Rfam assigns this 122-nucleotide RNA to the family "mir-584 microRNA precursor family".
RNA sequence: UAGGAUGACCAACUGUCCUGGUUUGCCUGAAACAGAGGCAUUUCCCAGGACACAGGACUCUUUGAAAGCUAAAAGCAGGACAGUUCUGGGUAAUCCAGAACAGUUGGUCAUUCUAAUUAAAA
Numbered sequence: 001u002a003g004g005a006u007g008a009c010c011a012a013c014u015g016u017c018c019u020g021g022u023u024u025g026c027c028u029g030a031a032a033c034a035g036a037g038g039c040a041u042u043u044c045c046c047a048g049g050a051c052a053c054a055g056g057a058c059u060c061u062u063u064g065a066a067a068g069c070u071a072a073a074a075g076c077a078g079g080a081c082a083g084u085u086c087u088g089g090g091u092a093a094u095c096c097a098g099a100a101c102a103g104u105u106g107g108u109c110a111u112u113c114u115a116a117u118u119a120a121a122a
Stems, first nucleotide, its partner, number of pairs: 001115015019097003023093007031085003035081001038053001041050002